[Rfam]
Nucleotides: 112
Stems, first nucleotide, its partner, number of pairs: 005108005011102001013100007022092004028086007036078001
Number, partner (000 for none) and nucleotide at each position: 001000g002000g003000u004000u005108g006107g007106a008105u009104u010000a011102c012000u013100g014099g015098g016097c017096g018095a019094a020000u021000a022092c023091u024090c025089c026000c027000a028086u029085g030084g031083c032082a033081g034080a035000u036078g037000a038000c039000u040000u041000u042000g043000g044000c045000a046000u047000u048000g049000g050000u051000a052000g053000a054000g055000u056000c057000u058000a059000g060000a061000g062000a063000u064000g065000c066000a067000a068000a069000g070000c071000a072000a073000a074000a075000u076000g077000c078036u079000c080034u081033c082032u083031g084030c085029c086028a087000a088000a089025g090024g091023a092022g093000a094019u095018u096017u097016g098015c099014c100013c101000c102011g103000c104009a105008a106007u107006u108005c109000a110000u111000c112000c
Overview: Shown here is a 112-nucleotide sequence from Capsella rubella, a member of the family "mir-399 microRNA precursor family". The source organism's lineage runs through Eukaryota, malvids, Brassicales, Brassicaceae and Capsella. About the family: mir-399 was identified in both Arabidopsis thaliana and Oryza sativa computationally and was later experimentally verified. mir-399 is thought to target mRNAs coding for a phosphatase transporter. The mature sequence is excised from the 3' arm of the hairpin.